Rfam assigns this 73-nucleotide RNA from Corallococcus coralloides to the family "tRNA". Rfam classes the family as a transfer RNA. The match comes from Rfam's covariance-model search (71 bits).
RNA sequence: GCCCAAGUAGCUCAGUCGGUAGAGCAGGGGACUGAAAAUCCCCGUGUCGGUGGUUCGAUUCCGCCCUUGGGCA
Dot-bracket structure: (((((((..((((........)))).(((((.......))))).....(((((.......)))))))))))).